[Rfam]
RNA sequence: AGAUACCAGGUGCAAAAGGUCGGAAAUCCGUCGCAAGCUUGCUUACAGGAGGAUUUUUGAACUUGGGACUCGUACAAACAUGAGUAAGAAGCCAUUUUUUGAAGAAAAAUGAGCGAAUUACGAAUGUUUUUAGAAUUGCGAGAGUGCAAAGCGCGUAGCAAUUCGGUAUCA
Numbered sequence: 001a002g003a004u005a006c007c008a009g010g011u012g013c014a015a016a017a018g019g020u021c022g023g024a025a026a027u028c029c030g031u032c033g034c035a036a037g038c039u040u041g042c043u044u045a046c047a048g049g050a051g052g053a054u055u056u057u058u059g060a061a062c063u064u065g066g067g068a069c070u071c072g073u074a075c076a077a078a079c080a081u082g083a084g085u086a087a088g089a090a091g092c093c094a095u096u097u098u099u100u101g102a103a104g105a106a107a108a109a110u111g112a113g114c115g116a117a118u119u120a121c122g123a124a125u126g127u128u129u130u131u132a133g134a135a136u137u138g139c140g141a142g143a144g145u146g147c148a149a150a151g152c153g154c155g156u157a158g159c160a161a162u163u164c165g166g167u168a169u170c171a
Stems, first nucleotide, its partner, number of pairs: 002170006010069002013066001017063002020060010031049002033046001035044003074131001076129006084121004091114002093111008133164007144154004
Dot-bracket structure: .((((((..((.(...((.((((((((((.(((.(((....))).).)).)))))))))).))..).))....(.((((((..((((...((((((((((...)))))))).))...))))..)))))).).(((((((....((((...))))...))))))))))))).
RNA: Clostridiales-1 RNA